A member of the RNA family "mir-34 microRNA precursor family" from Homarus americanus, 69 nucleotides long.
RNA sequence: UGGGUGUGGCAGUGUGGUUAGCUGGUUGUGUGUGUGGAUCACAACCACUAUCUUCACUGCCCCCCCUCC
Dot-bracket structure: .(((.(.((.((((.((.(((.((((((((.........))))))))))).)).)))).))..).))).
The family's consensus secondary structure was predicted with RNAalifold.
From the family's description: Human mir-34a was discovered computationally and later experimentally verified. The mature sequence is excised from the 5' arm of the hairpin.